[Rfam]
Background
Rfam assigns this 78-nucleotide RNA from Malonomonas rubra to the family "pan motif". By type it is a cis-regulatory element. The source organism's lineage runs through Bacteria, Pseudomonadati, Desulfuromonadia, Desulfuromonadales and Malonomonas rubra. A search with the family's covariance model found it, with a score of 39 bits. The family's consensus secondary structure is taken from published work.

RNA sequence: GGCCCGGGACUCGUACCGGAGCCGUAAACCUGUCGGCAAAAACUGAUACCGCCUGGAUCGUUAGACCGGGACGGAAGG
Numbered sequence: 001g002g003c004c005c006g007g008g009a010c011u012c013g014u015a016c017c018g019g020a021g022c023c024g025u026a027a028a029c030c031u032g033u034c035g036g037c038a039a040a041a042a043c044u045g046a047u048a049c050c051g052c053c054u055g056g057a058u059c060g061u062u063a064g065a066c067c068g069g070g071a072c073g074g075a076a077g078g
Base pairs, nucleotide, nucleotide: 001023002022003021004019005018006017007016049074050073051072052070053069054068055067056066058065059064